[Rfam]
RNA: SAM (S-adenosyl methionine) riboswitch aptamer
RNA sequence: GUUCAAGAGUCGUGACCGUAGGUACCUGGCCGGUUACGCGACAACCCGAAUCCAUCGAUUCCCGGGUGUCCCAGGGGAAGAACGGGCUUCGCGAAACAUCGCGUUGCAAGUUUCGAUG
Numbered sequence: 001g002u003u004c005a006a007g008a009g010u011c012g013u014g015a016c017c018g019u020a021g022g023u024a025c026c027u028g029g030c031c032g033g034u035u036a037c038g039c040g041a042c043a044a045c046c047c048g049a050a051u052c053c054a055u056c057g058a059u060u061c062c063c064g065g066g067u068g069u070c071c072c073a074g075g076g077g078a079a080g081a082a083c084g085g086g087c088u089u090c091g092c093g094a095a096a097c098a099u100c101g102c103g104u105u106g107c108a109a110g111u112u113u114c115g116a117u118g
Base pairs, nucleotide, nucleotide: 001083002082003081004080009039011038012037013036014035015034016033021031022030040070041069042068045066046065047064086107087106090103091102092101093100094099